[Rfam]
Nucleotides: 082
Base pairs, nucleotide, nucleotide: 001081002080003079004078005077006076007075010024011023012022013021026052027051028050029049030048058074059073060072061071062070
Number, partner (000 for none) and nucleotide at each position: 001081g002080g003079g004078g005077a006076a007075c008000u009000a010024g011023c012022u013021c014000a015000g016000u017000g018000g019000u020000a021013g022012a023011g024010c025000g026052u027051g028050u029049g030048c031000u032000u033000u034000g035000c036000a037000a038000g039000u040000g041000c042000a043000a044000g045000a046000a047000u048030g049029c050028a051027c052026a053000a054000g055000g056000u057000c058074c059073u060072g061071g062070g063000a064000u065000c066000g067000a068000u069000c070062c071061c072060c073059a074058g075007g076006u077005u078004c079003u080002c081001c082000a
Record summary
The family of this 82-nucleotide RNA from Mycoemilia scoparia is "tRNA". Transfer RNA (tRNA) molecules are approximately 80 nucleotides in length. The match comes from Rfam's covariance-model search (57 bits). The organism belongs to Mycoemilia, within Eukaryota. It is annotated as a transfer RNA.